ffh sRNA: a 48-nucleotide RNA sequence from Pelagibacterium halotolerans. A reference for the family is Meyer et al. (2009), "Identification of candidate structured RNAs in the marine organism 'Candidatus Pelagibacter ubique'", BMC Genomics. Pairs were carried over by alignment from the consensus structure, which is taken from published work.
[Rfam]
RNA sequence: GUUUCCGGUCAACAUCCGCCAGCGCGUUGCGCCCGCGGGUGUAUUUUG
Numbered sequence: 001g002u003u004u005c006c007g008g009u010c011a012a013c014a015u016c017c018g019c020c021a022g023c024g025c026g027u028u029g030c031g032c033c034c035g036c037g038g039g040u041g042u043a044u045u046u047u048g
Stems, first nucleotide, its partner, number of pairs: 013041007022032004
Dot-bracket structure: ............(((((((..((((...))))..))))))).......